[Rfam]
RNA: MIR845_2 microRNA precursor family
Organism: Vitis rotundifolia
RNA sequence: CGAAUGCACAUUCAUUAUCCCGGAGGCUAUGAGAUAAAUAAAAUAUUCUAUAAAACCAAGUUAGCACAUCCUAAAAUGAUUCUAACAUGCUCACUAACUUAUGGAUCUAAUACCAAUUGAUAGGAAAAACCC
Numbered sequence: 001c002g003a004a005u006g007c008a009c010a011u012u013c014a015u016u017a018u019c020c021c022g023g024a025g026g027c028u029a030u031g032a033g034a035u036a037a038a039u040a041a042a043a044u045a046u047u048c049u050a051u052a053a054a055a056c057c058a059a060g061u062u063a064g065c066a067c068a069u070c071c072u073a074a075a076a077u078g079a080u081u082c083u084a085a086c087a088u089g090c091u092c093a094c095u096a097a098c099u100u101a102u103g104g105a106u107c108u109a110a111u112a113c114c115a116a117u118u119g120a121u122a123g124g125a126a127a128a129a130c131c132c
Stems, first nucleotide, its partner, number of pairs: 010121003014117003023108001025106001027104007049087001054081002057078002061074004